[Rfam]
RNA: Group II catalytic intron D1-D4-3
Organism: Clostridium sp. 7_2_43FAA
RNA sequence: UCCAUAGUGAAGUGGAAUAUUAAGGAAGUUGGCGGCAAACCUUUGGUCUUAGGUACACAAAUCACAUUUGAGGUUUGAUUCUUUGGGUAAGUUUGAAUAACAAAGCGAAGCCCAAUAACUAUCAGAAAACAGAUAAAGUAUAUAUGGCAGAUAGGUGAAGGGAAAGUACGCGUU
Numbered sequence: 001u002c003c004a005u006a007g008u009g010a011a012g013u014g015g016a017a018u019a020u021u022a023a024g025g026a027a028g029u030u031g032g033c034g035g036c037a038a039a040c041c042u043u044u045g046g047u048c049u050u051a052g053g054u055a056c057a058c059a060a061a062u063c064a065c066a067u068u069u070g071a072g073g074u075u076u077g078a079u080u081c082u083u084u085g086g087g088u089a090a091g092u093u094u095g096a097a098u099a100a101c102a103a104a105g106c107g108a109a110g111c112c113c114a115a116u117a118a119c120u121a122u123c124a125g126a127a128a129a130c131a132g133a134u135a136a137a138g139u140a141u142a143u144a145u146g147g148c149a150g151a152u153a154g155g156u157g158a159a160g161g162g163a164a165a166g167u168a169c170g171c172g173u174u
Stems, first nucleotide, its partner, number of pairs: 001016005028174001030172002035167002040161006046152004062147003066143002073139003080133003083129002085113004091106004